[Rfam]
RNA sequence: AUUACUCACUCUCCCUCAAGGGCUUCUGUGAGUUUCUGGUUGAAAUACCAUACGGAGGACUUUAGAGAGAGUGGAUAAUAC
Numbered sequence: 001a002u003u004a005c006u007c008a009c010u011c012u013c014c015c016u017c018a019a020g021g022g023c024u025u026c027u028g029u030g031a032g033u034u035u036c037u038g039g040u041u042g043a044a045a046u047a048c049c050a051u052a053c054g055g056a057g058g059a060c061u062u063u064a065g066a067g068a069g070a071g072u073g074g075a076u077a078a079u080a081c
Base pairs, nucleotide, nucleotide: 006074007073008072009071010070011069012068013067015065018063019062020061021060023058024057025056026055027054028053
Background
This 81-nucleotide sequence from Manihot esculenta belongs to the Rfam family "MIR473 microRNA precursor family". The organism belongs to Manihot, within Eukaryota. The match comes from Rfam's covariance-model search (52 bits). Gene Ontology terms of the family: RISC complex and miRNA-mediated post-transcriptional gene silencing.